[Rfam]
RNA sequence: CAAUAGAUAUGGCAAAUUUUAUGAAAGUAAAAGACGCAAAGCCACGGGUCUAAAGUGAUAUCCAAUCACCAUGACAGCCGGGUUGCCAAG
Numbered sequence: 001c002a003a004u005a006g007a008u009a010u011g012g013c014a015a016a017u018u019u020u021a022u023g024a025a026a027g028u029a030a031a032a033g034a035c036g037c038a039a040a041g042c043c044a045c046g047g048g049u050c051u052a053a054a055g056u057g058a059u060a061u062c063c064a065a066u067c068a069c070c071a072u073g074a075c076a077g078c079c080g081g082g083u084u085g086c087c088a089a090g
Stems, first nucleotide, its partner, number of pairs: 012037002017032006040084004045080003048075003055069004